[Rfam]
The record is a 101-nucleotide sequence from Paenibacillus tyrphae, which matches "Glycine riboswitch aptamer" in Rfam.
RNA sequence: AUGAACGUAAAGGGAGAGAUUACCGGAACGUACGGUAGCGCCGAAGGAGUAAGCCCGUCGAGCCGGGUGAAUCUCUCAGGCAAAAGGACCUUUACCGGACG
Numbered sequence: 001a002u003g004a005a006c007g008u009a010a011a012g013g014g015a016g017a018g019a020u021u022a023c024c025g026g027a028a029c030g031u032a033c034g035g036u037a038g039c040g041c042c043g044a045a046g047g048a049g050u051a052a053g054c055c056c057g058u059c060g061a062g063c064c065g066g067g068u069g070a071a072u073c074u075c076u077c078a079g080g081c082a083a084a085a086g087g088a089c090c091u092u093u094a095c096c097g098g099a100c101g
Stems, first nucleotide, its partner, number of pairs: 007095007020038004040081003043077002047075003053068004